[Rfam]
RNA sequence: GGUCAGUGAUACGUUGGCAUGUAUUACCUGAAUUUACUGCUGCUGUGUAAUGACACUUCAGCUCUAGAAUUACACUGGGACCUU
Number, nucleotide and partner (000 for none) at each position: 001g082002g081003u080004c079005a000006g000007u000008g000009a000010u000011a000012c000013g000014u000015u000016g000017g000018c000019a000020u000021g000022u000023a000024u000025u000026a000027c000028c000029u000030g000031a000032a000033u000034u000035u000036a000037c000038u000039g000040c000041u000042g000043c000044u000045g000046u000047g000048u000049a000050a000051u000052g000053a000054c000055a000056c000057u000058u000059c000060a000061g000062c000063u000064c000065u000066a000067g000068a000069a000070u000071u000072a000073c000074a000075c000076u000077g000078g000079g004080a003081c002082c001083u000084u000